[Rfam]
RNA sequence: GCCCGUCACAGGUAUCUAGUCACCUGUGACGGGCCGAGAAUGGAAUCCGUCAAAGGAACACACCUUUGUCAGAUUCUACUUCCUGCCCAUCACAGGUGACUAGAUACCUGUGACGGGC
Numbered sequence: 001g002c003c004c005g006u007c008a009c010a011g012g013u014a015u016c017u018a019g020u021c022a023c024c025u026g027u028g029a030c031g032g033g034c035c036g037a038g039a040a041u042g043g044a045a046u047c048c049g050u051c052a053a054a055g056g057a058a059c060a061c062a063c064c065u066u067u068g069u070c071a072g073a074u075u076c077u078a079c080u081u082c083c084u085g086c087c088c089a090u091c092a093c094a095g096g097u098g099a100c101u102a103g104a105u106a107c108c109u110g111u112g113a114c115g116g117g118c
Stems, first nucleotide, its partner, number of pairs: 003116027031088003038081002041078007049070001051068005
RNA: MIR1883 microRNA precursor family
Organism: Oryza sativa